[Rfam]
RNA sequence: GUGCCAGUUCAAUGUGUCCCCUCAACUUUUAAAUGUUGUGGGGAGCAUAUUUUACAAUGACACUGGUAAAAUAAAGCCACAGUACGAGCCUUGAAGACUUUGUUGUCUCUGAGGUCCCAGAAGAUGGCUACAUGU
Numbered sequence: 001g002u003g004c005c006a007g008u009u010c011a012a013u014g015u016g017u018c019c020c021c022u023c024a025a026c027u028u029u030u031a032a033a034u035g036u037u038g039u040g041g042g043g044a045g046c047a048u049a050u051u052u053u054a055c056a057a058u059g060a061c062a063c064u065g066g067u068a069a070a071a072u073a074a075a076g077c078c079a080c081a082g083u084a085c086g087a088g089c090c091u092u093g094a095a096g097a098c099u100u101u102g103u104u105g106u107c108u109c110u111g112a113g114g115u116c117c118c119a120g121a122a123g124a125u126g127g128c129u130a131c132a133u134g135u
Base pairs, nucleotide, nucleotide: 003067004066005065006064007063017044018043019042020041021040076128077127078126079125088115089114090113091112092111093110096107097106098105
About this RNA
The family of this 135-nucleotide RNA sequence from Pitta sordida is "Small nucleolar RNA SNORA33". About the family: ACA33 is a member of the H/ACA class of snoRNA that guide the sites of modification of uridines to pseudouridines. Rfam links the family to the GO terms RNA processing and nucleolus. It is annotated as an H/ACA-box small nucleolar RNA.